[Rfam]
RNA sequence: CCUCCAUUUCUUGGCACGCUGGGUGUUGCCCGUACCCCACUGUGUAAUGUACGGAGGAAGAGAAUUCCCGGUGCUAUGUCUUCGGUGCCAGCUUUUGUAAUGAGCUGGUUCUAUCCUCAAUCACUGGGACAAGC
Numbered sequence: 001c002c003u004c005c006a007u008u009u010c011u012u013g014g015c016a017c018g019c020u021g022g023g024u025g026u027u028g029c030c031c032g033u034a035c036c037c038c039a040c041u042g043u044g045u046a047a048u049g050u051a052c053g054g055a056g057g058a059a060g061a062g063a064a065u066u067c068c069c070g071g072u073g074c075u076a077u078g079u080c081u082u083c084g085g086u087g088c089c090a091g092c093u094u095u096u097g098u099a100a101u102g103a104g105c106u107g108g109u110u111c112u113a114u115c116c117u118c119a120a121u122c123a124c125u126g127g128g129a130c131a132a133g134c
Base pairs, nucleotide, nucleotide: 001057002056003055004054005053015044016043017042018041020039021037022036023035024034069126070125071124072123073122088108089107090106091105092104093103094102
Annotation
A member of the RNA family "Small nucleolar RNA SNORA57" from Aquarana catesbeiana, 134 nucleotides long. U99 belongs to the H/ACA class of snoRNAs which are thought to guide the sites of modification of uridines to pseudouridines, the target for this family is unknown. On this family, see Vitali et al., Nucleic Acids Res 2003: "Identification of 13 novel human modification guide RNAs". The source organism's lineage runs through Eukaryota, Metazoa, Amphibia, Neobatrachia and Aquarana. The match comes from Rfam's covariance-model search (102 bits).